[Rfam]
RNA sequence: AUGUUCAGGGAUCGCCCCCCACCAGCGAGUUUCGCCCGUGGGGGCAUUUGUG
Numbered sequence: 001a002u003g004u005u006c007a008g009g010g011a012u013c014g015c016c017c018c019c020c021a022c023c024a025g026c027g028a029g030u031u032u033c034g035c036c037c038g039u040g041g042g043g044g045c046a047u048u049u050g051u052g
Stems, first nucleotide, its partner, number of pairs: 016044007025035004